A member of the RNA family "Iron response element I" from Myotis lucifugus, 35 nucleotides long. It is annotated as a cis-regulatory element. The family's consensus secondary structure is taken from published work. NCBI's taxonomy places the organism under Eukaryota, Metazoa, Sarcopterygii, Chiroptera, Myotis. Gene Ontology term of the family: response to iron ion.

RNA sequence: CUACCUCAUGCUUCAACAGUGUUUGGAUGGAACAG
Numbered sequence: 001c002u003a004c005c006u007c008a009u010g011c012u013u014c015a016a017c018a019g020u021g022u023u024u025g026g027a028u029g030g031a032a033c034a035g
Stems, first nucleotide, its partner, number of pairs: 001035002006031002010028001012027005017021001